Group II catalytic intron D1-D4-2: a 117-nucleotide RNA from Thorsellia anophelis. The match comes from Rfam's covariance-model search (97 bits). On this family, see Lehmann and Schmidt, Crit Rev Biochem Mol Biol 2003: "Group II introns: structure and catalytic versatility of large natural ribozymes". The pairing is the family consensus, mapped onto this sequence. About the family: Group II introns are found in rRNA, tRNA and mRNA of organelles in fungi, plants and protists, and also in mRNA in bacteria.

[Rfam]
RNA sequence: GGUGGUAGUCCCACCAACAUCGGCUAGCAAGAGCUGGUGUUAAAUCGGCUCCAGCUGCGUUAUUUAAGAGAUAUCGUGGUGAGCGUGGAGUGAAAAGGCAAUGUUUAAAUUGUCAGA
Numbered sequence: 001g002g003u004g005g006u007a008g009u010c011c012c013a014c015c016a017a018c019a020u021c022g023g024c025u026a027g028c029a030a031g032a033g034c035u036g037g038u039g040u041u042a043a044a045u046c047g048g049c050u051c052c053a054g055c056u057g058c059g060u061u062a063u064u065u066a067a068g069a070g071a072u073a074u075c076g077u078g079g080u081g082a083g084c085g086u087g088g089a090g091u092g093a094a095a096a097g098g099c100a101a102u103g104u105u106u107a108a109a110u111u112g113u114c115a116g117a
Base pairs, nucleotide, nucleotide: 001015002014003013004012005011016041017040018039019038020037021036023034024033025032045117046116048091049090050089051088052087053086054080055079057077058076059075061073062072063071064070097114098113099112100111101110102109